[Rfam]
RNA sequence: GGCGGGUUGAUAGAACCUAAUACAACACCCUUUUUGGGAAAUAAGUUCAGCCGUCUUGUAUCGGUAGUUGAGACCUGCCAACCCUUU
Dot-bracket structure: (((((((.....((((.((........(((.....)))...)).)))).((((........)))).......)))))))........